RNA sequence: AGUCAGUGAUGAUUUAUGUAUAAGAGUAGUGGACAGAUGUGAUUUCUGAGACAUUUAACACUGAGGCU
Numbered sequence: 001a002g003u004c005a006g007u008g009a010u011g012a013u014u015u016a017u018g019u020a021u022a023a024g025a026g027u028a029g030u031g032g033a034c035a036g037a038u039g040u041g042a043u044u045u046c047u048g049a050g051a052c053a054u055u056u057a058a059c060a061c062u063g064a065g066g067c068u
Base pairs, nucleotide, nucleotide: 001068002067003066004065
The family of this 68-nucleotide RNA sequence from Dicentrarchus labrax is "Small nucleolar RNA SNORD75".
The family's consensus secondary structure was predicted with RNAalifold.
Lineage of the source: Eukaryota > Metazoa > Vertebrata > Euteleosteomorpha > Dicentrarchus.
The match comes from Rfam's covariance-model search (61 bits).
A reference for the family is Smith and Steitz (1998), "Classification of gas5 as a multi-small-nucleolar-RNA (snoRNA) host gene and a member of the 5'-terminal oligopyrimidine gene family reveals common features of snoRNA host genes", Mol Cell Biol.